[Rfam]
RNA sequence: ACAUCAAGUGAACAGUUUGCCAAUAUAGGUUCGGAUAUUAUGGCCCGAACGUUUCUACCGAACGCCCAGUUUCGACUAUUGGUUGAAAAUCGCAGUAU
Numbered sequence: 001a002c003a004u005c006a007a008g009u010g011a012a013c014a015g016u017u018u019g020c021c022a023a024u025a026u027a028g029g030u031u032c033g034g035a036u037a038u039u040a041u042g043g044c045c046c047g048a049a050c051g052u053u054u055c056u057a058c059c060g061a062a063c064g065c066c067c068a069g070u071u072u073c074g075a076c077u078a079u080u081g082g083u084u085g086a087a088a089a090u091c092g093c094a095g096u097a098u
Base pairs, nucleotide, nucleotide: 019083020082021081022080023079024078025077029050030049031048032047033046034045059074060073061072062071
Dot-bracket structure: ..................(((((((...((((((..........))))))........((((........))))..)))))))...............
The record is a 98-nucleotide RNA sequence from Candidatus Apopatosoma intestinale, which matches "Purine riboswitch aptamer" in Rfam.
The family's consensus secondary structure is taken from published work.
The literature on the family includes a 2003 paper in Cell by Mandal et al., "Riboswitches Control Fundamental Biochemical Pathways in Bacillus subtilis and Other Bacteria".